[Rfam]
RNA sequence: GUGCCUCAGGGCUGAACUCGUCCCUGAUAUUUAAUCGUUCCCAUCAACUUCACAUUCUUAGGGAAGUUUUUCCUUUUUGUCUAAUUCAAGAUGGGCUAUGC
Numbered sequence: 001g002u003g004c005c006u007c008a009g010g011g012c013u014g015a016a017c018u019c020g021u022c023c024c025u026g027a028u029a030u031u032u033a034a035u036c037g038u039u040c041c042c043a044u045c046a047a048c049u050u051c052a053c054a055u056u057c058u059u060a061g062g063g064a065a066g067u068u069u070u071u072c073c074u075u076u077u078u079g080u081c082u083a084a085u086u087c088a089a090g091a092u093g094g095g096c097u098a099u100g101c
Stems, first nucleotide, its partner, number of pairs: 040095006058084005064078001
The record is a 101-nucleotide RNA from Amborella trichopoda, which matches "Small nucleolar RNA snoR99" in Rfam. It scores 46 bits against the family's covariance model. Rfam classes the family as an H/ACA-box small nucleolar RNA. Pairs were carried over by alignment from the consensus structure, which was predicted with WAR. Rfam 15.1 lists 733 matches to the family in 222 species. NCBI's taxonomy places the organism under Eukaryota, Streptophyta, Amborellales, Amborellaceae, Amborella.